Source information:
Rfam assigns this 161-nucleotide RNA sequence from Paenibacillus darwinianus to the family "Ribosomal protein L10 leader". The family's RNA type in Rfam is cis-regulatory leader. Pairs were carried over by alignment from the consensus structure, which was predicted with CMfinder. From the family's description: This family is a putative r-protein leader autoregulatory structure found in B. subtilis and other low-GC Gram-positive bacteria. Taxonomically the source falls in Paenibacillus (Bacteria, Bacillati, Bacillota, Caryophanales).
[Rfam]
Nucleotides: 161
Base pairs, nucleotide, nucleotide: 028056029055030054031053032052034044035043036042122146123145124144125143126142127141128140129139130138131137
Number, partner (000 for none) and nucleotide at each position: 001000a002000a003000u004000a005000u006000u007000c008000g009000a010000a011000u012000a013000c014000g015000c016000a017000u018000a019000c020000c021000g022000u023000a024000g025000a026000c027000a028056g029055u030054a031053g032052g033000u034044g035043c036042c037000g038000a039000c040000u041000a042036g043035g044034c045000u046000u047000a048000a049000u050000u051000u052032c053031c054030u055029a056028c057000c058000g059000a060000g061000g062000u063000g064000u065000u066000a067000u068000g069000a070000u071000a072000c073000a074000c075000g076000c077000g078000a079000a080000c081000g082000u083000c084000g085000c086000g087000c088000c089000c090000g091000a092000a093000a094000u095000c096000u097000u098000c099000c100000g101000g102000u103000g104000a105000g106000g107000c108000g109000g110000c111000a112000u113000u114000g115000c116000g117000a118000u119000c120000a121000u122146g123145g124144c125143c126142u127141u128140c129139g130138c131137a132000g133000u134000c135000u136000a137131u138130g139129c140128g141127a142126a143125g144124g145123c146122c147000u148000u149000u150000c151000u152000c153000a154000u155000g156000c157000a158000u159000c160000a161000a